RNA: MIR2617 microRNA precursor family
Organism: Medicago truncatula
RNA sequence: AUGUAAUGUAACAUGCCCGUUUGGUGCUUAACUCUGAUGAUUAUGUUAUAUUUAAUUACUUUUGGGUAGCGGGGUGUUACAGUCGA
Number, nucleotide and partner (000 for none) at each position: 001a000002u086003g000004u000005a083006a000007u081008g080009u079010a078011a077012c076013a075014u074015g000016c073017c072018c071019g070020u069021u068022u000023g000024g000025u000026g000027c000028u000029u000030a000031a000032c000033u000034c000035u000036g000037a000038u000039g000040a000041u000042u000043a000044u000045g000046u000047u000048a000049u000050a000051u000052u000053u000054a000055a000056u000057u000058a000059c000060u000061u000062u000063u000064g000065g000066g000067u000068a021069g020070c019071g018072g017073g016074g014075u013076g012077u011078u010079a009080c008081a007082g000083u005084c000085g000086a002